About this RNA
Shown here is a 494-nucleotide part of an RNA from Acanthochromis polyacanthus, a member of the family "Eukaryotic small subunit ribosomal RNA". For this family Rfam cites "Crystal structure of the ribosome at 5.5 A resolution" (Yusupov et al., Science, 2001). It scores 1319 bits against the family's covariance model.
RNA sequence: UGACAGAAGGGCCUCACCAGGAGAGGAGCCUGCGGCUUAAUUUGACUCAACACGGGAAACCUCACCCGGCCCGGACACGGAAAGGAUUGACAGAUUGAUAGCUCUUUCUCGAUUCUGUGGGUGGUGGUGCAUGGCCGUUCUUAGUUGGUGGAGCAAUUUGUCUGGUUAAUUACGAUAAUGAACUAGACUCUGACAUGCUAACUAGUUACGCAGCCCCGUGCGGUAGGCGUCUAACGUCUUAGAGGGACAAGUGGUGUUCAGCCACACGAGAUUAAGCAAUAACAGGUCUGUGAUGCCCUUAGAUGUCCGGGGCUGCACGAGCGCCACACUGAGUGGAUCGGCGUGUGUCUACCCUUUGCCGAGAGGCGUGGGUAACCCGCUGAACCCCACUCAUGAUAGGCAUUGUGGAUUGCAAUUAUUUCCCAUGAACGAGGAAUUCCCAGUAAGCGCGGGUCAUAAGCUUGCGUAGAUUAAGUCCCUGCCCUUUGUACACA
Numbered sequence: 001u002g003a004c005a006g007a008a009g010g011g012c013c014u015c016a017c018c019a020g021g022a023g024a025g026g027a028g029c030c031u032g033c034g035g036c037u038u039a040a041u042u043u044g045a046c047u048c049a050a051c052a053c054g055g056g057a058a059a060c061c062u063c064a065c066c067c068g069g070c071c072c073g074g075a076c077a078c079g080g081a082a083a084g085g086a087u088u089g090a091c092a093g094a095u096u097g098a099u100a101g102c103u104c105u106u107u108c109u110c111g112a113u114u115c116u117g118u119g120g121g122u123g124g125u126g127g128u129g130c131a132u133g134g135c136c137g138u139u140c141u142u143a144g145u146u147g148g149u150g151g152a153g154c155a156a157u158u159u160g161u162c163u164g165g166u167u168a169a170u171u172a173c174g175a176u177a178a179u180g181a182a183c184u185a186g187a188c189u190c191u192g193a194c195a196u197g198c199u200a201a202c203u204a205g206u207u208a209c210g211c212a213g214c215c216c217c218g219u220g221c222g223g224u225a226g227g228c229g230u231c232u233a234a235c236g237u238c239u240u241a242g243a244g245g246g247a248c249a250a251g252u253g254g255u256g257u258u259c260a261g262c263c264a265c266a267c268g269a270g271a272u273u274a275a276g277c278a279a280u281a282a283c284a285g286g287u288c289u290g291u292g293a294u295g296c297c298c299u300u301a302g303a304u305g306u307c308c309g310g311g312g313c314u315g316c317a318c319g320a321g322c323g324c325c326a327c328a329c330u331g332a333g334u335g336g337a338u339c340g341g342c343g344u345g346u347g348u349c350u351a352c353c354c355u356u357u358g359c360c361g362a363g364a365g366g367c368g369u370g371g372g373u374a375a376c377c378c379g380c381u382g383a384a385c386c387c388c389a390c391u392c393a394u395g396a397u398a399g400g401c402a403u404u405g406u407g408g409a410u411u412g413c414a415a416u417u418a419u420u421u422c423c424c425a426u427g428a429a430c431g432a433g434g435a436a437u438u439c440c441c442a443g444u445a446a447g448c449g450c451g452g453g454u455c456a457u458a459a460g461c462u463u464g465c466g467u468a469g470a471u472u473a474a475g476u477c478c479c480u481g482c483c484c485u486u487u488g489u490a491c492a493c494a
Stems, first nucleotide, its partner, number of pairs: 001492002003489003007486006016476002020440004025327001028324002031321001033319002035316002041056004065311005071305001076119005089108002092105003123299002126297004132293001133291001134287003137283003144183003148179002150159003163174002189275001192272001194245001196243001198242004205235003248268001251265005331392006345377001353372002357368004399430001404425002407422003447467007